[Rfam]
RNA sequence: GGCCGUCGUCGCUGCCAGCGAAGGGGGGUGCCGCAACAAGGAGAGGAGGACGGAUUGGGGCGAGUGGAGCAUCGAAGGGGAUGUCCCACGAGCAGAUUCGGCGGCGAUGACAUCCCCUUUGACGCUCCACUCGCCCCACUCCGUCCUCCUCUCCUUGUUGCGGCACCCCCCCCUCCCUUUGCCGGCAGCGAUGACGGG
Numbered sequence: 001g002g003c004c005g006u007c008g009u010c011g012c013u014g015c016c017a018g019c020g021a022a023g024g025g026g027g028g029u030g031c032c033g034c035a036a037c038a039a040g041g042a043g044a045g046g047a048g049g050a051c052g053g054a055u056u057g058g059g060g061c062g063a064g065u066g067g068a069g070c071a072u073c074g075a076a077g078g079g080g081a082u083g084u085c086c087c088a089c090g091a092g093c094a095g096a097u098u099c100g101g102c103g104g105c106g107a108u109g110a111c112a113u114c115c116c117c118u119u120u121g122a123c124g125c126u127c128c129a130c131u132c133g134c135c136c137c138a139c140u141c142c143g144u145c146c147u148c149c150u151c152u153c154c155u156u157g158u159u160g161c162g163g164c165a166c167c168c169c170c171c172c173c174u175c176c177c178u179u180u181g182c183c184g185g186c187a188g189c190g191a192u193g194a195c196g197g198g
Stems, first nucleotide, its partner, number of pairs: 003197005009191008018182002023179001024170031056138015072122002075119011089106002092102002
A member of the RNA family "MIR1858 microRNA precursor family" from Oryza rufipogon, 198 nucleotides long. Rfam links the family to the GO terms RISC complex and miRNA-mediated post-transcriptional gene silencing. A search with the family's covariance model found it, with a score of 157 bits.